Description: Rfam assigns this 88-nucleotide RNA from Salvia splendens to the family "Small nucleolar RNA R44/J54/Z268 family". Pairs were carried over by alignment from the consensus structure, which was predicted with PFOLD.

RNA sequence: UUUGCAAGUUAUGCUAAAACAGACAGGGACAUCAGAGCUCUUUUAGGGGAAUGAUUGAAUAGUCUAAUGGGAAUCUCUCUGAUGCAAU
Numbered sequence: 001u002u003u004g005c006a007a008g009u010u011a012u013g014c015u016a017a018a019a020c021a022g023a024c025a026g027g028g029a030c031a032u033c034a035g036a037g038c039u040c041u042u043u044u045a046g047g048g049g050a051a052u053g054a055u056u057g058a059a060u061a062g063u064c065u066a067a068u069g070g071g072a073a074u075c076u077c078u079c080u081g082a083u084g085c086a087a088u
Stems, first nucleotide, its partner, number of pairs: 002087005
Clan: SNORD74 clan. A search with the family's covariance model found it, with a score of 75 bits.